[Rfam]
RNA: Small nucleolar RNA SNORD99
Organism: Anhinga anhinga
RNA sequence: CCUGGUCCGUGAUGACUCCUUCCUUCGGAGACUGUUGGAUGAAUCCUGCGGAUAUGGGGCUGAGGCCAGGC
Numbered sequence: 001c002c003u004g005g006u007c008c009g010u011g012a013u014g015a016c017u018c019c020u021u022c023c024u025u026c027g028g029a030g031a032c033u034g035u036u037g038g039a040u041g042a043a044u045c046c047u048g049c050g051g052a053u054a055u056g057g058g059g060c061u062g063a064g065g066c067c068a069g070g071c
Stems, first nucleotide, its partner, number of pairs: 001070005